The family of this 304-nucleotide sequence from Mangrovimonas sp. DI 80 is "Bacterial RNase P class A". Rfam links the family to the GO terms dimeric ribonuclease P complex, tRNA processing and ribonuclease P activity. It scores 200 bits against the family's covariance model.
RNA sequence: CAAGUAAAUCGCCUUAUCGAACCAAUUUAUUGGUUAGGAAAGUCCGAACACCGUAGUGCAGUAUAGUGGUUAAUGGCCACCAGUCGUGAGGCUAGGAAUAGUGCAACAGAAAGGAUGUACAGGUAAUGCUGUAGUGAAAUCAUGUAAACUCUAUACGGUGCAAUGUCAUGUAUACCAACGUUUGAGGGCGGCACGUUCGAUGUUGGAGGGUAGGCAGCUAAAGUGUGCUGGUAACAGUACACUCAGAUAAAUGAUAAGGGCUCCAUUCGGAGUACAGAAUUCGGCUUAUAGAUUUACUUGCUUA
Numbered sequence: 001c002a003a004g005u006a007a008a009u010c011g012c013c014u015u016a017u018c019g020a021a022c023c024a025a026u027u028u029a030u031u032g033g034u035u036a037g038g039a040a041a042g043u044c045c046g047a048a049c050a051c052c053g054u055a056g057u058g059c060a061g062u063a064u065a066g067u068g069g070u071u072a073a074u075g076g077c078c079a080c081c082a083g084u085c086g087u088g089a090g091g092c093u094a095g096g097a098a099u100a101g102u103g104c105a106a107c108a109g110a111a112a113g114g115a116u117g118u119a120c121a122g123g124u125a126a127u128g129c130u131g132u133a134g135u136g137a138a139a140u141c142a143u144g145u146a147a148a149c150u151c152u153a154u155a156c157g158g159u160g161c162a163a164u165g166u167c168a169u170g171u172a173u174a175c176c177a178a179c180g181u182u183u184g185a186g187g188g189c190g191g192c193a194c195g196u197u198c199g200a201u202g203u204u205g206g207a208g209g210g211u212a213g214g215c216a217g218c219u220a221a222a223g224u225g226u227g228c229u230g231g232u233a234a235c236a237g238u239a240c241a242c243u244c245a246g247a248u249a250a251a252u253g254a255u256a257a258g259g260g261c262u263c264c265a266u267u268c269g270g271a272g273u274a275c276a277g278a279a280u281u282c283g284g285c286u287u288a289u290a291g292a293u294u295u296a297c298u299u300g301c302u303u304a
Stems, first nucleotide, its partner, number of pairs: 001300010011289001012259007020035006040287003044284005049160004056194004061156005066080005081095001082093004096151002101149002103145003164216004175206005186198004223242008